[Rfam]
RNA sequence: UCAGAGGCUUUUAUUUUUAUUUUUAAAAGCAUUUUUUCUACAACCUCUUUAGCCGAAAAAAUGCUUUUAAAAGUAAAAAAAAAGCCUCUGAUGAUCUCGCAGCUCAGCUGGGAUCGUCAGAGGCUUUUUUUUU
Numbered sequence: 001u002c003a004g005a006g007g008c009u010u011u012u013a014u015u016u017u018u019a020u021u022u023u024u025a026a027a028a029g030c031a032u033u034u035u036u037u038c039u040a041c042a043a044c045c046u047c048u049u050u051a052g053c054c055g056a057a058a059a060a061a062u063g064c065u066u067u068u069a070a071a072a073g074u075a076a077a078a079a080a081a082a083a084g085c086c087u088c089u090g091a092u093g094a095u096c097u098c099g100c101a102g103c104u105c106a107g108c109u110g111g112g113a114u115c116g117u118c119a120g121a122g123g124c125u126u127u128u129u130u131u132u133u
Stems, first nucleotide, its partner, number of pairs: 016077004021072014036057003081127019
RNA: Phenylalanine leader peptide